[Rfam]
RNA sequence: UGCCGGCUUUCCAUCAGCCGGGGUUACUUAGAGGCACACCUUCAUUGCCGGAAGUGCGGUCGGGUUCCCCCACCAAUCCAUGGCAGACAAAGCGGAUCAAAAGCUCUUGGCAGGGCGUUGAUCCAUCAUCCGCGCUGUACGAGCGCAUGCGUGGU
Numbered sequence: 001u002g003c004c005g006g007c008u009u010u011c012c013a014u015c016a017g018c019c020g021g022g023g024u025u026a027c028u029u030a031g032a033g034g035c036a037c038a039c040c041u042u043c044a045u046u047g048c049c050g051g052a053a054g055u056g057c058g059g060u061c062g063g064g065u066u067c068c069c070c071c072a073c074c075a076a077u078c079c080a081u082g083g084c085a086g087a088c089a090a091a092g093c094g095g096a097u098c099a100a101a102a103g104c105u106c107u108u109g110g111c112a113g114g115g116c117g118u119u120g121a122u123c124c125a126u127c128a129u130c131c132g133c134g135c136u137g138u139a140c141g142a143g144c145g146c147a148u149g150c151g152u153g154g155u
Stems, first nucleotide, its partner, number of pairs: 001023001003021006033049004056135003083093001103116004

Rfam assigns this 155-nucleotide RNA from Rhizobium sp. Root1212 to the family "speF leader".
About the family: This family is a putative regulatory RNA structure that is found upstream of the speF gene encoding ornithine decarboxylase in Agrobacterium tumefaciens and other alpha-proteobacteria.
It is annotated as a cis-regulatory leader.
Pairs were carried over by alignment from the consensus structure, which was predicted with RNAalifold.
The organism belongs to Rhizobium, within Bacteria.